[Rfam]
RNA: Small nucleolar RNA snoR136
RNA sequence: AAGGCUUCAGCUUUCUUUGAGAUUUUUGCUUGUACUUUUUCCAAUUCCAAUGUGUUUGGUGGUGCGUAAUUGAAGCCAAUAUGUGUGUUCGCCUUGCUAUCCAUUGUUGCAAUUUUGAUGCAGCAUUUGGACAUUGAGGAACUAAAUUA
Numbered sequence: 001a002a003g004g005c006u007u008c009a010g011c012u013u014u015c016u017u018u019g020a021g022a023u024u025u026u027u028g029c030u031u032g033u034a035c036u037u038u039u040u041c042c043a044a045u046u047c048c049a050a051u052g053u054g055u056u057u058g059g060u061g062g063u064g065c066g067u068a069a070u071u072g073a074a075g076c077c078a079a080u081a082u083g084u085g086u087g088u089u090c091g092c093c094u095u096g097c098u099a100u101c102c103a104u105u106g107u108u109g110c111a112a113u114u115u116u117g118a119u120g121c122a123g124c125a126u127u128u129g130g131a132c133a134u135u136g137a138g139g140a141a142c143u144a145a146a147u148u149a
Stems, first nucleotide, its partner, number of pairs: 001080001003077003008072003012068001015064001018061002025059002028056001029054001031052001034051001036049001087142004093136001095133002100131004109121003